The record is a 256-nucleotide sequence from Septoria linicola, which matches "A. fumigatus sRNA Afu_309" in Rfam. The family's consensus secondary structure was predicted with WAR. Lineage of the source: Eukaryota > Opisthokonta > Ascomycota > leotiomyceta > Septoria. Rfam classes the family as a small RNA.
RNA sequence: ACAAUCACAAAGAUCUGUGUCCAGCGGUCCCGACGCAUCUUUUAGGUGCUGUUGGUUGACUGCUGCGACAGUUCGACGACACAUGGAACCUUCACACUCGCAAUGGAGCACGUCCGGUUGACAGAUCUGAGAGCAAUUGCGGCGCACAUCUUGAGCUCUUCGUGAGCUCGGUGUGUCGUCCGGGCGCUAUAUUCCAAAGCGUUCCUGAGCCCGUCGGGCCUUGAAGGUUGGGACAAACCAUAGCUUGCCUACAUAC
Numbered sequence: 001a002c003a004a005u006c007a008c009a010a011a012g013a014u015c016u017g018u019g020u021c022c023a024g025c026g027g028u029c030c031c032g033a034c035g036c037a038u039c040u041u042u043u044a045g046g047u048g049c050u051g052u053u054g055g056u057u058g059a060c061u062g063c064u065g066c067g068a069c070a071g072u073u074c075g076a077c078g079a080c081a082c083a084u085g086g087a088a089c090c091u092u093c094a095c096a097c098u099c100g101c102a103a104u105g106g107a108g109c110a111c112g113u114c115c116g117g118u119u120g121a122c123a124g125a126u127c128u129g130a131g132a133g134c135a136a137u138u139g140c141g142g143c144g145c146a147c148a149u150c151u152u153g154a155g156c157u158c159u160u161c162g163u164g165a166g167c168u169c170g171g172u173g174u175g176u177c178g179u180c181c182g183g184g185c186g187c188u189a190u191a192u193u194c195c196a197a198a199g200c201g202u203u204c205c206u207g208a209g210c211c212c213g214u215c216g217g218g219c220c221u222u223g224a225a226g227g228u229u230g231g232g233a234c235a236a237a238c239c240a241u242a243g244c245u246u247g248c249c250u251a252c253a254u255a256c
Stems, first nucleotide, its partner, number of pairs: 011128008019069003022065003026061004030055005035049002038045001040044001077120004086109001089106002139179003147173004153169006183249003186244005200230002204227003209219004
For this family Rfam cites "Small ncRNA transcriptome analysis from Aspergillus fumigatus suggests a novel mechanism for regulation of protein synthesis" (Jochl et al., Nucleic Acids Res, 2008).